Notes
Rfam assigns this 91-nucleotide RNA from Triticum urartu to the family "Small nucleolar RNA Z161/Z228". By type it is a C/D-box small nucleolar RNA. Lineage of the source: Eukaryota > commelinids > Poales > Poaceae > Triticum. The family's consensus secondary structure was predicted with PFOLD. Gene Ontology terms of the family: nucleolus and RNA processing. Clan: SNORD35 clan.
[Rfam]
RNA sequence: GGGGCAUAUGAUGAGAAACUGUAUCCAAACUCAUGACGGUCGUCUAAGAUACUUUGUGUAUAAUGUUGCAAUCAUAUUUUCUCUGAUGUCC
Numbered sequence: 001g002g003g004g005c006a007u008a009u010g011a012u013g014a015g016a017a018a019c020u021g022u023a024u025c026c027a028a029a030c031u032c033a034u035g036a037c038g039g040u041c042g043u044c045u046a047a048g049a050u051a052c053u054u055u056g057u058g059u060a061u062a063a064u065g066u067u068g069c070a071a072u073c074a075u076a077u078u079u080u081c082u083c084u085g086a087u088g089u090c091c
Stems, first nucleotide, its partner, number of pairs: 001091003050058003